[Rfam]
RNA sequence: UAGAAGUCGAGCUCAAGCACAAAUUCGAUCUUGCUUAACAAGGUACCGGCAAAGUCAGAUCGAAUUUGGGCUUGAGAUUGUCUUCUU
Numbered sequence: 001u002a003g004a005a006g007u008c009g010a011g012c013u014c015a016a017g018c019a020c021a022a023a024u025u026c027g028a029u030c031u032u033g034c035u036u037a038a039c040a041a042g043g044u045a046c047c048g049g050c051a052a053a054g055u056c057a058g059a060u061c062g063a064a065u066u067u068g069g070g071c072u073u074g075a076g077a078u079u080g081u082c083u084u085c086u087u
Base pairs, nucleotide, nucleotide: 002086003085004084005083006082008080009079010078012076013075014074015073016072017071018070020068021067022066023065024064025063026062027061028060029059030058031057033055034054035053036052039049